[Rfam]
RNA sequence: GCGUGCCGGGACCUUGGCUCUAGACUGCUUACUGCGAAAUCCAAGGGGCGAAACAGUAACAGUCCACAGUCAUGGCUACUGACGGCUG
Numbered sequence: 001g002c003g004u005g006c007c008g009g010g011a012c013c014u015u016g017g018c019u020c021u022a023g024a025c026u027g028c029u030u031a032c033u034g035c036g037a038a039a040u041c042c043a044a045g046g047g048g049c050g051a052a053a054c055a056g057u058a059a060c061a062g063u064c065c066a067c068a069g070u071c072a073u074g075g076c077u078a079c080u081g082a083c084g085g086c087u088g
Stems, first nucleotide, its partner, number of pairs: 012075002015072004023064005029059005
RNA: mir-132 microRNA precursor family